[Rfam]
RNA sequence: CCAGUGUCAGACCACACUUUAAUGUGCCACUCUGCGGAGAGUGCAGUCUGCGAUAGUGCCCCAGGUGGACUGGGU
Numbered sequence: 001c002c003a004g005u006g007u008c009a010g011a012c013c014a015c016a017c018u019u020u021a022a023u024g025u026g027c028c029a030c031u032c033u034g035c036g037g038a039g040a041g042u043g044c045a046g047u048c049u050g051c052g053a054u055a056g057u058g059c060c061c062c063a064g065g066u067g068g069a070c071u072g073g074g075u
Base pairs, nucleotide, nucleotide: 006044008050009049010048011047012046013026014025015024016023028043029042030041031040033039060074061073062072063071064070